[Rfam]
RNA sequence: GUGCUCCUGCCGUGUUCGCGAUUGCCAUAUAUUCCUUGAACCAUUUAUGUGCAUAGGUUGCGGGAUUUUGUUCGACGGGCGUGAUUGUCGCUAGUCCGAUGAACCCGAAGUUGAACUAACUGUGACCACCUUGAACCGUAAGGUUCGGGAUGCCGGCAAAGACGGCACAGGCGGGGCUAAA
Number, nucleotide and partner (000 for none) at each position: 001g000002u179003g178004c000005u176006c175007c174008u173009g172010c171011c170012g168013u167014g166015u165016u000017c164018g163019c000020g000021a000022u000023u000024g000025c000026c000027a000028u000029a000030u000031a000032u000033u150034c149035c148036u000037u147038g146039a145040a144041c143042c142043a000044u000045u000046u000047a000048u000049g000050u000051g000052c000053a000054u000055a000056g127057g126058u125059u000060g123061c122062g121063g120064g000065a000066u000067u000068u000069u000070g116071u115072u114073c113074g112075a111076c110077g000078g000079g000080c000081g104082u103083g000084a000085u000086u101087g100088u099089c098090g097091c000092u000093a000094g000095u000096c000097c090098g089099a088100u087101g086102a000103a082104c081105c000106c000107g000108a000109a000110g076111u075112u074113g073114a072115a071116c070117u000118a000119a000120c063121u062122g061123u060124g000125a058126c057127c056128a000129c000130c000131u000132u000133g000134a000135a000136c000137c000138g000139u000140a000141a000142g042143g041144u040145u039146c038147g037148g035149g034150a033151u000152g000153c000154c000155g000156g000157c000158a000159a000160a000161g000162a000163c018164g017165g015166c014167a013168c012169a000170g011171g010172c009173g008174g007175g006176g005177c000178u003179a002180a000181a000